[Rfam]
RNA sequence: UGCAGCUAUGAAGCGCCGGGCCCUUUUGCAACAGCGGAGCGGGAAGCGCUGCUUCCCCAUGGGCUUGCCCACCGCCACGAAGGGUGACGAGGAUGGGAGAUAACCCGUUUUCGGCAAUGUGCCGAAGCGGGCGGCAUCGAAAGAUUCGGCGGAUGCUCCCACGGCCGGGGUUCCGGGCGGCCGACACCAUGCGGGCAAAACACGGCGGCAACGCCGAAACAGAGACGCAUGGCACACCGGGA
Numbered sequence: 001u002g003c004a005g006c007u008a009u010g011a012a013g014c015g016c017c018g019g020g021c022c023c024u025u026u027u028g029c030a031a032c033a034g035c036g037g038a039g040c041g042g043g044a045a046g047c048g049c050u051g052c053u054u055c056c057c058c059a060u061g062g063g064c065u066u067g068c069c070c071a072c073c074g075c076c077a078c079g080a081a082g083g084g085u086g087a088c089g090a091g092g093a094u095g096g097g098a099g100a101u102a103a104c105c106c107g108u109u110u111u112c113g114g115c116a117a118u119g120u121g122c123c124g125a126a127g128c129g130g131g132c133g134g135c136a137u138c139g140a141a142a143g144a145u146u147c148g149g150c151g152g153a154u155g156c157u158c159c160c161a162c163g164g165c166c167g168g169g170g171u172u173c174c175g176g177g178c179g180g181c182c183g184a185c186a187c188c189a190u191g192c193g194g195g196c197a198a199a200a201c202a203c204g205g206c207g208g209c210a211a212c213g214c215c216g217a218a219a220c221a222g223a224g225a226c227g228c229a230u231g232g233c234a235c236a237c238c239g240g241g242a
Base pairs, nucleotide, nucleotide: 020085021084022083023082024081025080026079094161095160096159097158098157104149105148162183163182164181165180166179167178187232188231189230190229191228192227193226203216204215205214206213207212
RNA: glmS glucosamine-6-phosphate activated ribozyme aptamer
Organism: Ruthenibacterium lactatiformans